[Rfam]
RNA sequence: AUGGUGUGUUUUGAUAUAAAAAAAAAAUCUGUUCUUAUCAGUUUAAUAUCUGAUACGUCCUCUAUGUGAGGACUACAUAUUUAACCAAUUUUUGACCGUGGGAGUCGGAAGAGGGGCUUGCUCCAUCCGCUCCACGCAUCAGCCCGGUAUUGCAGUACUUCUGGGAAUGGUGCACCUCUU
Numbered sequence: 001a002u003g004g005u006g007u008g009u010u011u012u013g014a015u016a017u018a019a020a021a022a023a024a025a026a027a028u029c030u031g032u033u034c035u036u037a038u039c040a041g042u043u044u045a046a047u048a049u050c051u052g053a054u055a056c057g058u059c060c061u062c063u064a065u066g067u068g069a070g071g072a073c074u075a076c077a078u079a080u081u082u083a084a085c086c087a088a089u090u091u092u093u094g095a096c097c098g099u100g101g102g103a104g105u106c107g108g109a110a111g112a113g114g115g116g117c118u119u120g121c122u123c124c125a126u127c128c129g130c131u132c133c134a135c136g137c138a139u140c141a142g143c144c145c146g147g148u149a150u151u152g153c154a155g156u157a158c159u160u161c162u163g164g165g166a167a168u169g170g171u172g173c174a175c176c177u178c179u180u
Stems, first nucleotide, its partner, number of pairs: 001015002004012001036055006057073006101133005107127002113124004136173006143165005